Record summary: A member of the RNA family "Y RNA" from Aotus nancymaae, 102 nucleotides long. Pairs were carried over by alignment from the consensus structure, which is taken from published work. The family's RNA type in Rfam is non-coding RNA gene. The match comes from Rfam's covariance-model search (55 bits).
RNA sequence: GGCUGGUCCUAGCACAGUAGUGUUUACUACUAAUUGAUGACAACCAGUUACAAAUUUCUUUUUUCCUUCUCUACUCCCACUGCUUUACUUGAUGAGCCUUUU
Numbered sequence: 001g002g003c004u005g006g007u008c009c010u011a012g013c014a015c016a017g018u019a020g021u022g023u024u025u026a027c028u029a030c031u032a033a034u035u036g037a038u039g040a041c042a043a044c045c046a047g048u049u050a051c052a053a054a055u056u057u058c059u060u061u062u063u064u065c066c067u068u069c070u071c072u073a074c075u076c077c078c079a080c081u082g083c084u085u086u087a088c089u090u091g092a093u094g095a096g097c098c099u100u101u102u
Stems, first nucleotide, its partner, number of pairs: 001098004006093003011089001014086001016081003020077001022076001029063001032060002

The source organism's lineage runs through Eukaryota, Metazoa, Dipnotetrapodomorpha, Simiiformes and Aotus.